[Rfam]
RNA sequence: GGCCGCGUGGCGCAAUGGAUAACGCGUCUGCCUACGGAGCAGAAGAUUGCAGGUUCGAAUCCUGCCGUGGUCG
Numbered sequence: 001g002g003c004c005g006c007g008u009g010g011c012g013c014a015a016u017g018g019a020u021a022a023c024g025c026g027u028c029u030g031c032c033u034a035c036g037g038a039g040c041a042g043a044a045g046a047u048u049g050c051a052g053g054u055u056c057g058a059a060u061c062c063u064g065c066c067g068u069g070g071u072c073g
Stems, first nucleotide, its partner, number of pairs: 001072007010025003027043005049065005
A member of the RNA family "tRNA" from Caenorhabditis elegans, 73 nucleotides long.